[Rfam]
RNA sequence: GCGUGGGUUUGGAUUUAUGGCAGGCCUGUUCCCCUGGGCCUCUCCUAGUGUCCCAUGCCAGAGCAACUGUGGCCCUGAACCAUUGUCUGGCCUCUGCCCAUAGGCUGCAGGCACUGAAGCAGGUUGCACAGUG
Numbered sequence: 001g002c003g004u005g006g007g008u009u010u011g012g013a014u015u016u017a018u019g020g021c022a023g024g025c026c027u028g029u030u031c032c033c034c035u036g037g038g039c040c041u042c043u044c045c046u047a048g049u050g051u052c053c054c055a056u057g058c059c060a061g062a063g064c065a066a067c068u069g070u071g072g073c074c075c076u077g078a079a080c081c082a083u084u085g086u087c088u089g090g091c092c093u094c095u096g097c098c099c100a101u102a103g104g105c106u107g108c109a110g111g112c113a114c115u116g117a118a119g120c121a122g123g124u125u126g127c128a129c130a131g132u133g
Stems, first nucleotide, its partner, number of pairs: 001058004005053004015048003019044002022041003025037002070126005081116002086111002088107006
RNA: Small nucleolar RNA SNORA42/SNORA80 family